Background: mir-412 microRNA precursor family: an 80-nucleotide RNA sequence from Equus caballus. The base pairs follow the family's consensus structure, which was predicted with RNAalifold.
RNA sequence: GGGUACAGGAGGGAUGGUCGACCAGUUGGAAAGUAAUUGUUUCUAAUGUACUUCACCUGGUCCACUAGCCGUCCGUACCC
Numbered sequence: 001g002g003g004u005a006c007a008g009g010a011g012g013g014a015u016g017g018u019c020g021a022c023c024a025g026u027u028g029g030a031a032a033g034u035a036a037u038u039g040u041u042u043c044u045a046a047u048g049u050a051c052u053u054c055a056c057c058u059g060g061u062c063c064a065c066u067a068g069c070c071g072u073c074c075g076u077a078c079c080c
Base pairs, nucleotide, nucleotide: 001080002079003078004077005076006075009073010072012070013069015067016066017065018064020062021061022060023059024058025057027055028054029053032052033051034050035049036047037046038045039044